uup RNA: a 39-nucleotide RNA from Peptostreptococcus sp. D1.
RNA sequence: GCUCCGGACAAAUAAAAAUGAUGAAACAUUGUCCGGAGC
Numbered sequence: 001g002c003u004c005c006g007g008a009c010a011a012a013u014a015a016a017a018a019u020g021a022u023g024a025a026a027c028a029u030u031g032u033c034c035g036g037a038g039c
Base pairs, nucleotide, nucleotide: 002038003037004036005035006034008032009031010030
Dot-bracket structure: .(((((.(((...................))).))))).
The match comes from Rfam's covariance-model search (41 bits).